[Rfam]
The family of this 127-nucleotide RNA sequence from Triticum turgidum is "MIR408 microRNA precursor family".

RNA sequence: AAAGAAGAAAAAGAAGAGGAGAAGAAGAAAGGAAUAGAGGAGAAAGAAGAAAAAAUAGAAGAAUUUUUUUUAGUUUUUCCUCUUCUCCUCUAUUCCUUUCUUCUUCUCCUCUUUCUUUUCUUUUUUU
Numbered sequence: 001a002a003a004g005a006a007g008a009a010a011a012a013g014a015a016g017a018g019g020a021g022a023a024g025a026a027g028a029a030a031g032g033a034a035u036a037g038a039g040g041a042g043a044a045a046g047a048a049g050a051a052a053a054a055a056u057a058g059a060a061g062a063a064u065u066u067u068u069u070u071u072a073g074u075u076u077u078u079c080c081u082c083u084u085c086u087c088c089u090c091u092a093u094u095c096c097u098u099u100c101u102u103c104u105u106c107u108c109c110u111c112u113u114u115c116u117u118u119u120c121u122u123u124u125u126u127u
Base pairs, nucleotide, nucleotide: 017110018109019108021106022105023104024103025102026101027100029098030097031096032095033094034093036091037090038089039088040087042086046082047081

Background: It scores 65 bits against the family's covariance model.